Small nucleolar RNA SNORD60: an 86-nucleotide RNA from Muraenolepis orangiensis. The family has 22 seed sequences and 825 matches in Rfam 15.1. The family's consensus secondary structure was predicted with PFOLD. On this family, see Kiss-Laszlo et al., Cell 1996: "Site-specific ribose methylation of preribosomal RNA: a novel function for small nucleolar RNAs".
[Rfam]
RNA sequence: AGCCAAUGAUGACAAACUCUUAUUUCUGACACCUCGUAUGAGAGCUAGUCAAUAGCUCCUAUGAUUCUGUUUUUGUUCUGAGGCUU
Dot-bracket structure: ((((.......................................((((.....)))).........................)))).